[Rfam]
RNA sequence: AAAUCUCCCUUCGAAGGGAGACCGAUCGAACACUUGUGUGAGAUCAGAGGGAUGUU
Numbered sequence: 001a002a003a004u005c006u007c008c009c010u011u012c013g014a015a016g017g018g019a020g021a022c023c024g025a026u027c028g029a030a031c032a033c034u035u036g037u038g039u040g041a042g043a044u045c046a047g048a049g050g051g052a053u054g055u056u
Stems, first nucleotide, its partner, number of pairs: 004021007024045004030039003

This 56-nucleotide RNA from Balneola sp. EhC07 belongs to the Rfam family "Whalefall-1 RNA". Lineage of the source: Bacteria > Balneolota > Balneolales > Balneolaceae > Balneola. Rfam classes the family as a small RNA. The family's consensus secondary structure is taken from published work.